[Rfam]
RNA sequence: CUGGUUCCGGUUCACGUACCUGCCGCAGGGCGCGGCGGACGACCCGGCGACU
Number, nucleotide and partner (000 for none) at each position: 001c000002u000003g052004g051005u050006u000007c047008c046009g045010g044011u000012u000013c000014a000015c041016g040017u039018a000019c037020c000021u000022g036023c035024c034025g033026c032027a000028g000029g000030g000031c000032g026033c025034g024035g023036c022037g019038g000039a017040c016041g015042a000043c000044c010045c009046g008047g007048c000049g000050a005051c004052u003